The family of this 82-nucleotide sequence from Trinickia dabaoshanensis is "Pseudomonas sRNA P9". Taxonomically the source falls in Trinickia (Bacteria, Pseudomonadati, Pseudomonadota, Burkholderiaceae).

RNA sequence: AUCAUUAUUCCCUCCAUUCCGAGAAUGGUGGGUUAGCGCGCAUACGCAGCAGUCACGAAAACCCGCCCAAUAGGCGGGUUUU
Number, nucleotide and partner (000 for none) at each position: 001a000002u000003c000004a000005u000006u000007a000008u000009u000010c000011c031012c030013u000014c028015c027016a026017u025018u000019c000020c000021g000022a000023g000024a000025a017026u016027g015028g014029u000030g012031g011032g000033u000034u000035a000036g000037c000038g000039c000040g000041c000042a000043u000044a000045c000046g000047c000048a000049g000050c000051a000052g000053u000054c000055a000056c000057g000058a000059a081060a080061a079062c078063c077064c076065g075066c074067c073068c000069a000070a000071u000072a000073g067074g066075c065076g064077g063078g062079u061080u060081u059082u000
Source information: The base pairs follow the family's consensus structure, which was predicted with RNAalifold. From the family's description: This small RNA (sRNA) was computationally identified in the genome of the opportunistic pathogen Pseudomonas aeruginosa and its expression verified by northern blot analysis. P9 appears to be conserved in several Pseudomonas species in addition to Bordetella spp. In both Pseudomonas and Bordetella spp P9 appears to be located upstream of a predicted threonine dehydratase gene. P9 has a predicted Rho independent terminator at the 3' end but the function of P9 is unknown. This sRNA also appears to be present in the Betaproteobacteria (Burkholderia and Ralstonia species).